[Rfam]
Small nucleolar RNA SNORA55: a 128-nucleotide RNA sequence from Neolamprologus brichardi. Gene Ontology terms of the family: RNA processing and nucleolus. ACA55 is a member of the H/ACA class of snoRNA that guide the sites of modification of uridines to pseudouridines. It scores 59 bits against the family's covariance model. Pairs were carried over by alignment from the consensus structure, which was predicted with PFOLD. Rfam 15.1 lists 1,476 matches to the family in 616 species. Lineage of the source: Eukaryota > Vertebrata > Teleostomi > African cichlids > Neolamprologus.
RNA sequence: GCACCUCAGUACAACCCUGUCGAUUCUCUGUAAUCGAUACGGGUCAGACUGGUGCUAUAGAAACUCAAAGUAAAUCCAGAUGGACCUCCUCGUUCUGUGGAGCCUGUCUCUACAACUUUGAUACACAG
Number, nucleotide and partner (000 for none) at each position: 001g055002c054003a053004c052005c051006u000007c000008a000009g000010u000011a000012c000013a044014a000015c042016c041017c000018u039019g038020u000021c036022g035023a000024u000025u000026c000027u000028c000029u000030g000031u000032a000033a000034u000035c022036g021037a000038u019039a018040c000041g016042g015043g000044u013045c000046a000047g000048a000049c000050u000051g005052g004053u003054g002055c001056u000057a000058u000059a000060g000061a000062a000063a000064c000065u121066c120067a119068a118069a117070g116071u000072a000073a000074a000075u000076c000077c000078a109079g108080a107081u106082g105083g104084a000085c102086c000087u000088c100089c099090u000091c000092g000093u000094u000095c000096u000097g000098u000099g089100g088101a000102g085103c000104c083105u082106g081107u080108c079109u078110c000111u000112a000113c000114a000115a000116c070117u069118u068119u067120g066121a065122u000123a000124c000125a000126c000127a000128g000